RNA sequence: GCCGAGCCUCGUAGCGCAGGCUUGUCACCCGAGCGGGGGCACGAAGGAGGUGGAAUGGUGUGUUGUGCUUGACCGGGUUAGGUUCGACCCACCCAACCCCCGGCUUGCCCGUUCCGAGUCAGGCAGUUGAGCAAUGUGACUCCGGCGAAGGCUCGAGUCAUACGCAUCCUAAAGGGGAGGGCACCGCGUCAGGCUGGCUUCACAGAGCAGCGAAUACCUCCCGCUCUUGACAGUGGAAGGGAUAGCAUGCCGGGCGGAGCCGCACCUUACGAUGCUCGGCAAGCGAACAUUUAUCAGACCACCAUCCUUU
Numbered sequence: 001g002c003c004g005a006g007c008c009u010c011g012u013a014g015c016g017c018a019g020g021c022u023u024g025u026c027a028c029c030c031g032a033g034c035g036g037g038g039g040c041a042c043g044a045a046g047g048a049g050g051u052g053g054a055a056u057g058g059u060g061u062g063u064u065g066u067g068c069u070u071g072a073c074c075g076g077g078u079u080a081g082g083u084u085c086g087a088c089c090c091a092c093c094c095a096a097c098c099c100c101c102g103g104c105u106u107g108c109c110c111g112u113u114c115c116g117a118g119u120c121a122g123g124c125a126g127u128u129g130a131g132c133a134a135u136g137u138g139a140c141u142c143c144g145g146c147g148a149a150g151g152c153u154c155g156a157g158u159c160a161u162a163c164g165c166a167u168c169c170u171a172a173a174g175g176g177g178a179g180g181g182c183a184c185c186g187c188g189u190c191a192g193g194c195u196g197g198c199u200u201c202a203c204a205g206a207g208c209a210g211c212g213a214a215u216a217c218c219u220c221c222c223g224c225u226c227u228u229g230a231c232a233g234u235g236g237a238a239g240g241g242a243u244a245g246c247a248u249g250c251c252g253g254g255c256g257g258a259g260c261c262g263c264a265c266c267u268u269a270c271g272a273u274g275c276u277c278g279g280c281a282a283g284c285g286a287a288c289a290u291u292u293a294u295c296a297g298a299c300c301a302c303c304a305u306c307c308u309u310u
Stems, first nucleotide, its partner, number of pairs: 001040003004023006028037003043310006049303005056296002060291001061289004068283004073278001075277004080267004085262002089259001092257002100253005106247003109240002112238005118231006125225003129168002135162008144153003169174001175222006187212003194205003